[Rfam]
RNA sequence: AAAAUAACUAACUGUAAGUCGCUCUGGAUAAGAGCAUCUGCUAAAUGACAAAAA
Numbered sequence: 001a002a003a004a005u006a007a008c009u010a011a012c013u014g015u016a017a018g019u020c021g022c023u024c025u026g027g028a029u030a031a032g033a034g035c036a037u038c039u040g041c042u043a044a045a046u047g048a049c050a051a052a053a054a
Base pairs, nucleotide, nucleotide: 013043014041015040016039021035022034023033024032025031

Notes
Rfam assigns this 54-nucleotide RNA from Coregonus sp. 'balchen' to the family "UnaL2 LINE 3' element". Rfam's curators write: The eel long interspersed element (LINE) UnaL2 and its partner short interspersed element (SINE) share a conserved 3' tail containing a stem-loop that is critical for their retrotransposition. Presumably, the first step of retrotransposition is the recognition of their 3' tails by UnaL2-encoded reverse transcriptase. Rfam classes the family as a cis-regulatory element. Lineage of the source: Eukaryota > Clupeocephala > Salmoniformes > Salmonidae > Coregonus. On this family, see Baba et al., RNA 2004: "Solution structure of an RNA stem-loop derived from the 3' conserved region of eel LINE UnaL2". Pairs were carried over by alignment from the consensus structure, which is taken from published work.